The family of this 80-nucleotide RNA from Lachnospiraceae bacterium AM48-27BH is "ZMP/ZTP riboswitch aptamer (pfl RNA motif)". The family's consensus secondary structure is taken from published work. It scores 62 bits against the family's covariance model.
[Rfam]
RNA sequence: CUAAGAGCGUGCGACUGGCGGAUUCGUGGGUAACCACAGGGGAGCACGUAGUAAAAAAGCCGACCGCCUGGGCACCGUUA
Numbered sequence: 001c002u003a004a005g006a007g008c009g010u011g012c013g014a015c016u017g018g019c020g021g022a023u024u025c026g027u028g029g030g031u032a033a034c035c036a037c038a039g040g041g042g043a044g045c046a047c048g049u050a051g052u053a054a055a056a057a058a059g060c061c062g063a064c065c066g067c068c069u070g071g072g073c074a075c076c077g078u079u080a
Stems, first nucleotide, its partner, number of pairs: 004052001007049006015041002017068005026037004059073003